[Rfam]
This 72-nucleotide sequence from Arcobacter sp. CECT 8983 belongs to the Rfam family "tRNA".
RNA sequence: UGGGGUAUCGCCAAGCGGUAAGGCACUGGUUUUUGGUACCAGCAUUCGUAGGUUCGAAUCCUGCUACCCCAG
Numbered sequence: 001u002g003g004g005g006u007a008u009c010g011c012c013a014a015g016c017g018g019u020a021a022g023g024c025a026c027u028g029g030u031u032u033u034u035g036g037u038a039c040c041a042g043c044a045u046u047c048g049u050a051g052g053u054u055c056g057a058a059u060c061c062u063g064c065u066a067c068c069c070c071a072g
Stems, first nucleotide, its partner, number of pairs: 001071007010024003026042005048064005

Rfam describes the family as follows. Transfer RNA (tRNA) molecules are approximately 80 nucleotides in length.
It scores 60 bits against the family's covariance model.